[Rfam]
A member of the RNA family "SAM riboswitch aptamer (S box leader)" from Sporomusa termitida, 98 nucleotides long. A search with the family's covariance model found it, with a score of 84 bits.

RNA sequence: AACUUAUCAAGAGUGGUCGAGGGACUGGCCCUAUGACACCCGGCAACCGGCGUUUAUGCAAGGUGCUAAAUCCAGCGGAGCAAUCCGGAAGAUGAGUU
Dot-bracket structure: ((((((((....(.(((...(((.[[[[)))......))))((((.((.(((....)))..))))))...(]]]]((((....))))..)))))))))
Numbered sequence: 001a002a003c004u005u006a007u008c009a010a011g012a013g014u015g016g017u018c019g020a021g022g023g024a025c026u027g028g029c030c031c032u033a034u035g036a037c038a039c040c041c042g043g044c045a046a047c048c049g050g051c052g053u054u055u056a057u058g059c060a061a062g063g064u065g066c067u068a069a070a071u072c073c074a075g076c077g078g079a080g081c082a083a084u085c086c087g088g089a090a091g092a093u094g095a096g097u098u
Stems, first nucleotide, its partner, number of pairs: 001098008013041001015040003021031003025075004042067004047063002050059003071090001076087004
Rfam describes the family as follows. The SAM riboswitch is found upstream of a number of genes which code for proteins involved in methionine or cysteine biosynthesis in Gram-positive bacteria. The SAM riboswitch acts at the level of transcription termination control. The predicted structure consists of a complex stem-loop region followed by a single stem loop terminator region.
Gene Ontology term of the family: regulation of gene expression.